The family of this 90-nucleotide RNA from Branchiostoma floridae is "mir-2060 microRNA precursor family". The family has 7 seed sequences and 3,696 matches in Rfam 15.1. Rfam links the family to the GO terms RISC complex and miRNA-mediated post-transcriptional gene silencing.

RNA sequence: GUUGCGGAUGGUGUUAAGUAUCGGGGACAGGUGUGUUUGCCUGUGUGUGGUGUGGAUGGUGUUCAGUACCAGAGACAGGUCUGUUUGCCU
Numbered sequence: 001g002u003u004g005c006g007g008a009u010g011g012u013g014u015u016a017a018g019u020a021u022c023g024g025g026g027a028c029a030g031g032u033g034u035g036u037u038u039g040c041c042u043g044u045g046u047g048u049g050g051u052g053u054g055g056a057u058g059g060u061g062u063u064c065a066g067u068a069c070c071a072g073a074g075a076c077a078g079g080u081c082u083g084u085u086u087g088c089c090u
Stems, first nucleotide, its partner, number of pairs: 001076002009071007017063007025051001027044007